This 134-nucleotide RNA from Gossypium aridum belongs to the Rfam family "MIR7502 microRNA precursor family". The family's consensus secondary structure was predicted with RNAalifold.
RNA sequence: UGUUAAAAAAUUAUCUAUUUUUAUGUUAAAAACUGCCGUAGUUGACGAAACAACCACACACUUAUGCCACAUAUACCUCAUGCUGAUGUAUAGGGAUCAAUUUUUAACAGUAAAAAUGGAUAAAUUUCUUAACA
Numbered sequence: 001u002g003u004u005a006a007a008a009a010a011u012u013a014u015c016u017a018u019u020u021u022u023a024u025g026u027u028a029a030a031a032a033c034u035g036c037c038g039u040a041g042u043u044g045a046c047g048a049a050a051c052a053a054c055c056a057c058a059c060a061c062u063u064a065u066g067c068c069a070c071a072u073a074u075a076c077c078u079c080a081u082g083c084u085g086a087u088g089u090a091u092a093g094g095g096a097u098c099a100a101u102u103u104u105u106a107a108c109a110g111u112a113a114a115a116a117u118g119g120a121u122a123a124a125u126u127u128c129u130u131a132a133c134a
Base pairs, nucleotide, nucleotide: 002133003132004131005130006129008127009126010125011124012122013121014120015119017117018116019115020114021113022112023111024110026107027106028105029104030103031102

Overview
The organism belongs to Gossypium, within Eukaryota.